Source information:
Shown here is a 101-nucleotide RNA from Acanthochromis polyacanthus, a member of the family "Vault RNA".

RNA sequence: GCACUGGUUUAGCUCAGUGGUUACUUCUCUGCACAAAUCUACCUGAUUUCGAGCUUCACUCCCUCCGCGGGAUCAAACCACGGGCGCUGUCCAGUGUUUUC
Numbered sequence: 001g002c003a004c005u006g007g008u009u010u011a012g013c014u015c016a017g018u019g020g021u022u023a024c025u026u027c028u029c030u031g032c033a034c035a036a037a038u039c040u041a042c043c044u045g046a047u048u049u050c051g052a053g054c055u056u057c058a059c060u061c062c063c064u065c066c067g068c069g070g071g072a073u074c075a076a077a078c079c080a081c082g083g084g085c086g087c088u089g090u091c092c093a094g095u096g097u098u099u100u101c
Base pairs, nucleotide, nucleotide: 002096003095004094005093006092007091012085013084014083015082017081018080019079020078021077022076
It scores 61 bits against the family's covariance model. Rfam's curators write: This family of RNAs are found as part of the enigmatic vault ribonucleoprotein complex. By type it is a non-coding RNA gene.